[Rfam]
RNA sequence: AGCACUGUGUGGUAUCUGCAGCCAGUUGUCCUGUCAGCUGGUUUGUUCAAAAGUCAGUGCUAGACUAAUUCAACACCUGGCAUCGUUGGUCUCCAUGCUGCCUAUGUUUGGAGUCCUGGUAUAUUUGUUGAAACACAGUG
Dot-bracket structure: .((((((......((.(((((.((((((......))))).).))))....).))))))))..(((.((((((......(((((....................)))))........)))...))).)))...........
RNA: Small nucleolar RNA SNORA8